[Rfam]
RNA sequence: UCGACGAAUGGGCAAACCCGGGGCAACCCGGCGACGCAAAACCACGGGUCCGAACGUUUCGGAUGGCCGGGUUACCGAA
Numbered sequence: 001u002c003g004a005c006g007a008a009u010g011g012g013c014a015a016a017c018c019c020g021g022g023g024c025a026a027c028c029c030g031g032c033g034a035c036g037c038a039a040a041a042c043c044a045c046g047g048g049u050c051c052g053a054a055c056g057u058u059u060c061g062g063a064u065g066g067c068c069g070g071g072u073u074a075c076c077g078a079a
Base pairs, nucleotide, nucleotide: 012037013036018031019030020029021028022027040073041072042071043070045069046068047067048064049063050062051061052060053059054058